The record is a 121-nucleotide sequence from Macleaya cordata, which matches "U5 spliceosomal RNA" in Rfam. Rfam describes the family as follows. U5 RNA is a component of both types of known spliceosome. The precise function of this molecule is unknown, though it is known that the 5' loop is required for splice site selection and p220 binding, and that both the 3' stem-loop and the Sm site are important for Sm protein binding and cap methylation. Lineage of the source: Eukaryota > Viridiplantae > Embryophyta > Tracheophyta > Macleaya. Pairs were carried over by alignment from the consensus structure, which is taken from published work. Rfam 15.1 lists 28,527 matches to the family in 2,489 species.

RNA sequence: AACCGCACAGUGAGCACAAAGCGAACUAUUCUUUCGCCUUUUACUAAAGAAUACCGUGUGCUCGCCGCACUCAGCGGUAUACACCUAUUUUUGUAGGAUUCUCUCUGCUUCUGUAGAGAAU
Numbered sequence: 001a002a003c004c005g006c007a008c009a010g011u012g013a014g015c016a017c018a019a020a021g022c023g024a025a026c027u028a029u030u031c032u033u034u035c036g037c038c039u040u041u042u043a044c045u046a047a048a049g050a051a052u053a054c055c056g057u058g059u060g061c062u063c064g065c066c067g068c069a070c071u072c073a074g075c076g077g078u079a080u081a082c083a084c085c086u087a088u089u090u091u092u093g094u095a096g097g098a099u100u101c102u103c104u105c106u107g108c109u110u111c112u113g114u115a116g117a118g119a120a121u
Stems, first nucleotide, its partner, number of pairs: 003077004008067001010065009027053008095121001099120006